The record is a 125-nucleotide RNA sequence from Desulfuromusa kysingii, which matches "SAM riboswitch aptamer (S box leader)" in Rfam. It scores 74 bits against the family's covariance model.
RNA sequence: UCUUUAUCCAGAGUGGUGGAGGGAGAAGGCCCUUUGAAGCCACGGCAACCGACAUUUCUUGGUAAAAGAGAGGGUUGGUGCCAAUUCCUGCCCUGUACACAUUACGCGUCGGGGACAGAUGGGGA
Number, nucleotide and partner (000 for none) at each position: 001u125002c124003u123004u122005u121006a120007u119008c118009c000010a000011g000012a000013g043014u042015g041016g040017u039018g000019g000020a000021g032022g031023g030024a000025g000026a000027a089028g088029g087030c023031c022032c021033u000034u000035u000036g000037a000038a000039g017040c016041c015042a014043c013044g082045g081046c080047a079048a000049c078050c077051g000052a000053c072054a000055u000056u000057u000058c000059u000060u000061g000062g000063u000064a000065a000066a000067a000068g000069a000070g000071a000072g053073g000074g000075u000076u000077g050078g049079u047080g046081c045082c044083a000084a000085u000086u117087c029088c028089u027090g000091c114092c113093c112094u111095g110096u000097a000098c000099a000100c000101a000102u000103u000104a000105c000106g000107c000108g000109u000110c095111g094112g093113g092114g091115a000116c000117a086118g008119a007120u006121g005122g004123g003124g002125a001
Record summary
NCBI's taxonomy places the organism under Bacteria, Pseudomonadati, Thermodesulfobacteriota, Desulfuromonadales, Desulfuromusa. The base pairs follow the family's consensus structure, which is taken from published work.